[Rfam]
RNA sequence: GAUUUCAACUAAAAAAGUCAUCAACAACAAAGUUGUAUAACUCAUCAAGACCUAUAACUUUUAUUUUUAUCAUUUCUUCAUCUAAUAAAAUGUUAGUAAUAUUGUUCACAGAAUUUACAUGUCUAUGUUAUAGUUUAUUAACCAAAAGAGAGAUAUGUGAAUUUUAUGAACAAUGUUACUAUCACUUUGUCGGAUGAAGAAAUGACCAAAAUAAAAGUUAUAGGUCUUGAUGAGUUAUACAACUUUGUUGUUGAUGACUUUUUCAGUUAAAAUC
Numbered sequence: 001g002a003u004u005u006c007a008a009c010u011a012a013a014a015a016a017g018u019c020a021u022c023a024a025c026a027a028c029a030a031a032g033u034u035g036u037a038u039a040a041c042u043c044a045u046c047a048a049g050a051c052c053u054a055u056a057a058c059u060u061u062u063a064u065u066u067u068u069a070u071c072a073u074u075u076c077u078u079c080a081u082c083u084a085a086u087a088a089a090a091u092g093u094u095a096g097u098a099a100u101a102u103u104g105u106u107c108a109c110a111g112a113a114u115u116u117a118c119a120u121g122u123c124u125a126u127g128u129u130a131u132a133g134u135u136u137a138u139u140a141a142c143c144a145a146a147a148g149a150g151a152g153a154u155a156u157g158u159g160a161a162u163u164u165u166a167u168g169a170a171c172a173a174u175g176u177u178a179c180u181a182u183c184a185c186u187u188u189g190u191c192g193g194a195u196g197a198a199g200a201a202a203u204g205a206c207c208a209a210a211a212u213a214a215a216a217g218u219u220a221u222a223g224g225u226c227u228u229g230a231u232g233a234g235u236u237a238u239a240c241a242a243c244u245u246u247g248u249u250g251u252u253g254a255u256g257a258c259u260u261u262u263u264c265a266g267u268u269a270a271a272a273u274c
Base pairs, nucleotide, nucleotide: 014261015260016259017258018257019256020255021254023252024251026249027248030245031244032243033242034241035240036239037238038237039236040235041234042233044231045230046229047228048227049226050225051224052223053222055220056219057218058217059216060215061214062213063212064211065210066209067208070205071204072203073202074201075200077198078197079196080195081194083192085190086189087188088187089186091184092183094181095180096179097178098177099176101174102173103172104171105170106169107168108167110165111164112163114161115160117158118157119156120155121154122153131144133142134141135140

The record is a 274-nucleotide RNA from Oryza glumipatula, which matches "MIR821 microRNA precursor family" in Rfam.
The source organism's lineage runs through Eukaryota, Streptophytina, Euphyllophyta, Liliopsida and Oryza.
The base pairs follow the family's consensus structure, which was predicted with RNAalifold.
Its family is annotated with miRNA-mediated post-transcriptional gene silencing and RISC complex in the Gene Ontology.